The record is a 75-nucleotide RNA sequence from Echeneis naucrates, which matches "mir-10 microRNA precursor family" in Rfam.
The family has 36 seed sequences and 3,853 matches in Rfam 15.1.
It scores 58 bits against the family's covariance model.
For this family Rfam cites "An extensive class of small RNAs in Caenorhabditis elegans" (Lee and Ambros, Science, 2001).
Its family is annotated with miRNA-mediated post-transcriptional gene silencing and RISC complex in the Gene Ontology.
Taxonomically the source falls in Echeneis (Eukaryota, Deuterostomia, Gnathostomata, Euteleostomi).
RNA sequence: CUUUGUGCACCCUGUAGAUCCGAAUUUGUGUAAAAUUAAACCAGCCACAGAUUCGUGUCCUGGGGAGCAUGUAGG
Numbered sequence: 001c002u003u004u005g006u007g008c009a010c011c012c013u014g015u016a017g018a019u020c021c022g023a024a025u026u027u028g029u030g031u032a033a034a035a036u037u038a039a040a041c042c043a044g045c046c047a048c049a050g051a052u053u054c055g056u057g058u059c060c061u062g063g064g065g066a067g068c069a070u071g072u073a074g075g
Stems, first nucleotide, its partner, number of pairs: 002073001004071004010065003017059003021055010
Dot-bracket structure: .(.((((..(((....(((.((((((((((...............)))))))))).)))...)))..)))).)..